[Rfam]
RNA sequence: UAUGGUCAAUGAUGACUCAUGUUUCUCAUGGUGACGGCUGGAUGAAUCCUGCGGAUAUGGGGCUGAGACCAAGC
Numbered sequence: 001u002a003u004g005g006u007c008a009a010u011g012a013u014g015a016c017u018c019a020u021g022u023u024u025c026u027c028a029u030g031g032u033g034a035c036g037g038c039u040g041g042a043u044g045a046a047u048c049c050u051g052c053g054g055a056u057a058u059g060g061g062g063c064u065g066a067g068a069c070c071a072a073g074c
Stems, first nucleotide, its partner, number of pairs: 001073001003071003
The record is a 74-nucleotide sequence from Varanus komodoensis, which matches "Small nucleolar RNA SNORD99" in Rfam. The organism belongs to Varanus, within Eukaryota. Rfam classes the family as a C/D-box small nucleolar RNA. The match comes from Rfam's covariance-model search (64 bits). Pairs were carried over by alignment from the consensus structure, which was predicted with RNAalifold. Rfam 15.1 lists 673 matches to the family in 613 species. The literature on the family includes a 2002 paper in Mol Cell Biol by Galardi et al., "Purified box C/D snoRNPs are able to reproduce site-specific 2'-O-methylation of target RNA in vitro".